[Rfam]
RNA sequence: AAAUAACACGGGAAUGAAGUUCUCCCACAGACUCAUCUGAAACCGCAAACGCUGAUGACUUCUACCACUUU
Numbered sequence: 001a002a003a004u005a006a007c008a009c010g011g012g013a014a015u016g017a018a019g020u021u022c023u024c025c026c027a028c029a030g031a032c033u034c035a036u037c038u039g040a041a042a043c044c045g046c047a048a049a050c051g052c053u054g055a056u057g058a059c060u061u062c063u064a065c066c067a068c069u070u071u
Stems, first nucleotide, its partner, number of pairs: 010026004016062006045052002